Annotation: The record is a 180-nucleotide sequence from Metabacillus arenae, which matches "Lysine riboswitch aptamer" in Rfam. A search with the family's covariance model found it, with a score of 139 bits.
[Rfam]
RNA sequence: AAUGAAGAUAGAGGUGCGAGCUUCAAGAGUAUGUUAUGUGAGGUGAAUGGAAGCCUGAGAGCAUAACAGAAAGGGGAGAGUCGCCGAAGUGAAGGGAAUUCCAUUAUUUCCCUUUUCUGGUUCUGUAUUGAAUAAGUGCAGAAUUGUCAAGAAUUUAUUUCUUGGAGGGCUAUCUCAUUG
Numbered sequence: 001a002a003u004g005a006a007g008a009u010a011g012a013g014g015u016g017c018g019a020g021c022u023u024c025a026a027g028a029g030u031a032u033g034u035u036a037u038g039u040g041a042g043g044u045g046a047a048u049g050g051a052a053g054c055c056u057g058a059g060a061g062c063a064u065a066a067c068a069g070a071a072a073g074g075g076g077a078g079a080g081u082c083g084c085c086g087a088a089g090u091g092a093a094g095g096g097a098a099u100u101c102c103a104u105u106a107u108u109u110c111c112c113u114u115u116u117c118u119g120g121u122u123c124u125g126u127a128u129u130g131a132a133u134a135a136g137u138g139c140a141g142a143a144u145u146g147u148c149a150a151g152a153a154u155u156u157a158u159u160u161c162u163u164g165g166a167g168g169g170c171u172a173u174c175u176c177a178u179u180g
Stems, first nucleotide, its partner, number of pairs: 006175006016084004021078004032068008088118002091115008119145011147165007
Riboswitches are metabolite binding domains within certain messenger RNAs that serve as precision sensors for their corresponding targets. The family's consensus secondary structure is taken from published work.